Bacterial large subunit ribosomal RNA: a 275-nucleotide part of an RNA. Clan: LSU clan. The match comes from Rfam's covariance-model search (2711 bits). Gene Ontology terms of the family: ribosome and structural constituent of ribosome. The base pairs follow the family's consensus structure, which is taken from published work.
RNA sequence: GAUAAAGAAUGUGAGAGACAUUCUCGCCGAAAGUCCAAGGGUUCCUGCGUAAAGUUAAUCUGCGCAGGUUUAGUCGGCCCCUAAGGUGAGGCUGAAAGGCGUAAUCGAUGGGAAUCAGGUUAAUAUUCCUGAACCUGAGGGAUGUGACGAAGUUAGUAAAUUGUAUACACUUAUUGGAUUGUGUAUGCAGUGAAUAGUUUCCAGGAAAUAACACCCUCAUUAGAGACCGUACCCCAAACCGACACAGGUGGACAGGUAGAGUAUACCAAGGCGCU
Dot-bracket structure: .....((((((.......))))))((((....((((..((...((((((...((.....)).))))))......(((..((...(((.(.(((....))).).)))...))...(((((........)))))..(((..((.(((...((((.......(((((((((((..........)))))))))))......)))).........))).)).)).....).)))..)).....((......)).)))).((((.....))))..))))..